[Rfam]
About this RNA
Rfam assigns this 116-nucleotide RNA from Mikania micrantha to the family "Plastid-psbA-1 3UTR RNA". It scores 95 bits against the family's covariance model. It is annotated as a cis-regulatory element. For this family Rfam cites "Retrograde signaling in plants: A critical review focusing on the GUN pathway and beyond" (Richter et al., Plant Commun, 2023). The base pairs follow the family's consensus structure, which was predicted with LocARNA. NCBI's taxonomy places the organism under Eukaryota, Tracheophyta, Mesangiospermae, Heliantheae alliance, Mikania. Clan: Plastid-psbA 3UTR RNA clan. Plastid psbA-1 is a non-coding RNA (ncRNA) present in plastids.
RNA sequence: UUGAAGCUAGAUCUAAAAAUGGAUAAGACUUUGGUAUUAUUGUAUAGGAGUUUUUGAACUAAAAAGGGAGCAAUUGCUUCCCUCUUGUUUUAUCAAGAGUGCGUUAUUGCUCCUUU
Numbered sequence: 001u002u003g004a005a006g007c008u009a010g011a012u013c014u015a016a017a018a019a020u021g022g023a024u025a026a027g028a029c030u031u032u033g034g035u036a037u038u039a040u041u042g043u044a045u046a047g048g049a050g051u052u053u054u055u056g057a058a059c060u061a062a063a064a065a066g067g068g069a070g071c072a073a074u075u076g077c078u079u080c081c082c083u084c085u086u087g088u089u090u091u092a093u094c095a096a097g098a099g100u101g102c103g104u105u106a107u108u109g110c111u112c113c114u115u116u
Stems, first nucleotide, its partner, number of pairs: 008023001011020002064116011076104001080101001082099005